[Rfam]
RNA sequence: GCUUGUACUCAUCCCAUGUAUCAGUGGAAGGGAGAAAAAUAUGUAUAUACAUAUAUUAAAAUUUCUCCAUUCCGCUUAUCUUUUGUGAUACAAGGGUAAAAAAAUAUUAUAUUUUAUAUCUCAUGUAUAUUUUCAUUUUAUUUAUAAGUUUUUUAUAAAUAAAAUAGUAACUAUAAAUAUAUAUGUUUCAUGCGAUAUAGACAAAAAAUUGCUAUAAAUCAUGCAAGAUAUAAAUAUGUGCAUGUUGAUAUGGGUAU
Numbered sequence: 001g002c003u004u005g006u007a008c009u010c011a012u013c014c015c016a017u018g019u020a021u022c023a024g025u026g027g028a029a030g031g032g033a034g035a036a037a038a039a040u041a042u043g044u045a046u047a048u049a050c051a052u053a054u055a056u057u058a059a060a061a062u063u064u065c066u067c068c069a070u071u072c073c074g075c076u077u078a079u080c081u082u083u084u085g086u087g088a089u090a091c092a093a094g095g096g097u098a099a100a101a102a103a104a105u106a107u108u109a110u111a112u113u114u115u116a117u118a119u120c121u122c123a124u125g126u127a128u129a130u131u132u133u134c135a136u137u138u139u140a141u142u143u144a145u146a147a148g149u150u151u152u153u154u155a156u157a158a159a160u161a162a163a164a165u166a167g168u169a170a171c172u173a174u175a176a177a178u179a180u181a182u183a184u185g186u187u188u189c190a191u192g193c194g195a196u197a198u199a200g201a202c203a204a205a206a207a208a209u210u211g212c213u214a215u216a217a218a219u220c221a222u223g224c225a226a227g228a229u230a231u232a233a234a235u236a237u238g239u240g241c242a243u244g245u246u247g248a249u250a251u252g253g254g255u256a257u
Base pairs, nucleotide, nucleotide: 001105003103004102006099013096014095015094017092018091019090024075025074026073027072028071029070031068032067033066038057039054040053041052042051043050044049078089079088080087118196119195120194123184124183125182126181127180128179129178130177131175135165136164137163138162139161140160141159142158143157144156145155146154147153148152185193186192220254222252224247225246226245228243229242230239231238
A member of the RNA family "RNA of unknown function RUF4" from Plasmodium yoelii, 257 nucleotides long. The source organism's lineage runs through Eukaryota, Sar, Apicomplexa, Vinckeia and Plasmodium yoelii. A search with the family's covariance model found it, with a score of 55 bits.